[Rfam]
RNA sequence: AUCAAAGGAACGAUCGUUGUGAUAUGAGUUUAAUUCAUUAACAUAUCACAGUGAUUUUCCUUUAUAUUG
Numbered sequence: 001a002u003c004a005a006a007g008g009a010a011c012g013a014u015c016g017u018u019g020u021g022a023u024a025u026g027a028g029u030u031u032a033a034u035u036c037a038u039u040a041a042c043a044u045a046u047c048a049c050a051g052u053g054a055u056u057u058u059c060c061u062u063u064a065u066a067u068u069g
Stems, first nucleotide, its partner, number of pairs: 004063007012056015
The record is a 69-nucleotide sequence from Lucilia cuprina, which matches "mir-5 microRNA precursor family" in Rfam.
The family's consensus secondary structure was predicted with RNAalifold.
A search with the family's covariance model found it, with a score of 80 bits.
The literature on the family includes a 2003 paper in Dev Cell by Aravin et al., "The small RNA profile during Drosophila melanogaster development".